Shown here is a 169-nucleotide RNA from Anaerosporomusa subterranea, a member of the family "Group II catalytic intron D1-D4-3". The family has 406 seed sequences and 4,274 matches in Rfam 15.1.
[Rfam]
RNA sequence: UCCGCCACGAGGCGGAAUCUGAAGGAAGCUGGAGGCAAACGCUCGACCCGAGGUACACGAACCAAUUUGAGGCUGUUCAGUCGGACGAGUCUCCACGACAAGGCAAAGUCCCAGUCGCCAAGGCUGAAGCAGUAGACUUGGGCGGGUACAUGAGCGGAAAGAUGACGUU
Number, nucleotide and partner (000 for none) at each position: 001u016002c015003c014004g013005c012006c011007a000008c000009g000010a000011g006012g005013c004014g003015g002016a001017a000018u000019c000020u000021g000022a000023a000024g000025g000026a000027a000028g169029c000030u167031g166032g000033a000034g000035g000036c161037a000038a000039a000040c156041g155042c154043u153044c152045g151046a147047c146048c145049c144050g143051a000052g000053g000054u000055a000056c000057a000058c000059g000060a000061a000062c142063c140064a139065a138066u000067u136068u000069g000070a000071g000072g133073c132074u131075g000076u128077u127078c126079a125080g124081u123082c122083g111084g110085a109086c108087g000088a000089g104090u103091c102092u101093c000094c000095a000096c000097g000098a000099c000100a000101a092102g091103g090104c089105a000106a000107a000108g086109u085110c084111c083112c000113a000114g000115u000116c000117g000118c000119c000120a000121a000122g082123g081124c080125u079126g078127a077128a076129g000130c000131a074132g073133u072134a000135g000136a067137c000138u065139u064140g063141g000142g062143c050144g049145g048146g047147u046148a000149c000150a000151u045152g044153a043154g042155c041156g040157g000158a000159a000160a000161g036162a000163u000164g000165a000166c031167g030168u000169u028